[Rfam]
RNA sequence: AGGUUGGCUUAGUAAAGUAGAUACUUCGUAGUCUAAUGGUAUGAUUAUUCUCUAGGGUAGAAUAGGUUGUGGGUUCGAUUCCCACCGAUAAUUUCUACUUACGCGAUCCAGCCUUUUU
Numbered sequence: 001a002g003g004u005u006g007g008c009u010u011a012g013u014a015a016a017g018u019a020g021a022u023a024c025u026u027c028g029u030a031g032u033c034u035a036a037u038g039g040u041a042u043g044a045u046u047a048u049u050c051u052c053u054a055g056g057g058u059a060g061a062a063u064a065g066g067u068u069g070u071g072g073g074u075u076c077g078a079u080u081c082c083c084a085c086c087g088a089u090a091a092u093u094u095c096u097a098c099u100u101a102c103g104c105g106a107u108c109c110a111g112c113c114u115u116u117u118u
Base pairs, nucleotide, nucleotide: 002113003112004111005110006109007108012102013101014100015099017098018097019096020095026078027077028076